This 62-nucleotide RNA sequence from Propionispora sp. 2/2-37 belongs to the Rfam family "Fluoride riboswitch aptamer (crcB RNA motif)".
NCBI's taxonomy places the organism under Bacteria, Bacillati, Negativicutes, Selenomonadales, Propionispora.

RNA sequence: CUGUAUAUCGGCGAUGGGGUUCGCCAUACAUACCGUACAUCGGUUAUGACUCCUACCACAUC
Numbered sequence: 001c002u003g004u005a006u007a008u009c010g011g012c013g014a015u016g017g018g019g020u021u022c023g024c025c026a027u028a029c030a031u032a033c034c035g036u037a038c039a040u041c042g043g044u045u046a047u048g049a050c051u052c053c054u055a056c057c058a059c060a061u062c
Stems, first nucleotide, its partner, number of pairs: 010025004016053006
Dot-bracket structure: .........[[[[..((((((]]]]......................)))))).........